[Rfam]
RNA: SAH (S-adenosyl-L-homocysteine) riboswitch aptamer
RNA sequence: AAUUCCGAGGAGCGCUGCGACGCAGAAUCUUCUGCUGCCAGGCUCGGAUCUGAUUAACUGCGCUCACCUGAC
Numbered sequence: 001a002a003u004u005c006c007g008a009g010g011a012g013c014g015c016u017g018c019g020a021c022g023c024a025g026a027a028u029c030u031u032c033u034g035c036u037g038c039c040a041g042g043c044u045c046g047g048a049u050c051u052g053a054u055u056a057a058c059u060g061c062g063c064u065c066a067c068c069u070g071a072c
Stems, first nucleotide, its partner, number of pairs: 004048005021037001022035005